[Rfam]
About this RNA: A member of the RNA family "Alphaproteobacterial sRNA BjrC1505" from Mesorhizobium australicum, 144 nucleotides long. The pairing is the family consensus, mapped onto this sequence. A search with the family's covariance model found it, with a score of 73 bits. The organism belongs to Mesorhizobium australicum, within Bacteria.
RNA sequence: AGAGCCGUUAAGGGUUCAUUAAGCUUUACAGGCGUUUACUAUGUCCAUCCAGUGAUCUGGAUUCUUACCGAGUGGUUGGAGCCACUUUGUUUGACGCCUCCCUGUUAAACUCCUGAGAGCCGCCUUAUCCGCGGCUCUUUUUUU
Numbered sequence: 001a002g003a004g005c006c007g008u009u010a011a012g013g014g015u016u017c018a019u020u021a022a023g024c025u026u027u028a029c030a031g032g033c034g035u036u037u038a039c040u041a042u043g044u045c046c047a048u049c050c051a052g053u054g055a056u057c058u059g060g061a062u063u064c065u066u067a068c069c070g071a072g073u074g075g076u077u078g079g080a081g082c083c084a085c086u087u088u089g090u091u092u093g094a095c096g097c098c099u100c101c102c103u104g105u106u107a108a109a110c111u112c113c114u115g116a117g118a119g120c121c122g123c124c125u126u127a128u129c130c131g132c133g134g135c136u137c138u139u140u141u142u143u144u
Base pairs, nucleotide, nucleotide: 001044003042005014006013020038021037022036023035024034048061049060050059051058070087071086072085073084074083075082093106094105095104096103115139116138117137118136119135120134121133122132123131